[Rfam]
RNA sequence: GUUUAUCGAAUUUUUAAACAAUUCUAACUAUUCUAAUAUAACCAUUCAAGGAAGGAGUAUAUUAAAAUGACAAAUCAAACAUAUAACCCAACUGACAAUUUAAUUAUUUUAUUAUACUCGCAAGGGCUGGAACUUUAGUAAUUAUCUGUUACUAAAUGUUUAAGUCCUAUUUCUCAUUGAAUGGGACUUAUAGA
Numbered sequence: 001g002u003u004u005a006u007c008g009a010a011u012u013u014u015u016a017a018a019c020a021a022u023u024c025u026a027a028c029u030a031u032u033c034u035a036a037u038a039u040a041a042c043c044a045u046u047c048a049a050g051g052a053a054g055g056a057g058u059a060u061a062u063u064a065a066a067a068u069g070a071c072a073a074a075u076c077a078a079a080c081a082u083a084u085a086a087c088c089c090a091a092c093u094g095a096c097a098a099u100u101u102a103a104u105u106a107u108u109u110u111a112u113u114a115u116a117c118u119c120g121c122a123a124g125g126g127c128u129g130g131a132a133c134u135u136u137a138g139u140a141a142u143u144a145u146c147u148g149u150u151a152c153u154a155a156a157u158g159u160u161u162a163a164g165u166c167c168u169a170u171u172u173c174u175c176a177u178u179g180a181a182u183g184g185g186a187c188u189u190a191u192a193g194a
Stems, first nucleotide, its partner, number of pairs: 024193003043183007051175002055119004062103005068097002071094002123168005132160001133158001135155007
RNA: Listeria sRNA rli60